Annotation
Shown here is a 79-nucleotide RNA sequence from Hermetia illucens, a member of the family "drz-agam-1 ribozyme". A reference for the family is Webb et al. (2009), "Widespread occurrence of self-cleaving ribozymes", Science.
[Rfam]
RNA sequence: UACUAUCAAACUCUAUCUCCACCUCCACGUGGUGACCGCUGGGAGCUCUUUCUUAACAAAAAGGUGCAAACGGAGAAGG
Numbered sequence: 001u002a003c004u005a006u007c008a009a010a011c012u013c014u015a016u017c018u019c020c021a022c023c024u025c026c027a028c029g030u031g032g033u034g035a036c037c038g039c040u041g042g043g044a045g046c047u048c049u050u051u052c053u054u055a056a057c058a059a060a061a062a063g064g065u066g067c068a069a070a071c072g073g074a075g076a077a078g079g
Stems, first nucleotide, its partner, number of pairs: 012079003016075001018073002021033003045067002048064004053059001
It scores 38 bits against the family's covariance model. Rfam 15.1 lists 10,507 matches to the family in 53 species. The base pairs follow the family's consensus structure, which is taken from published work.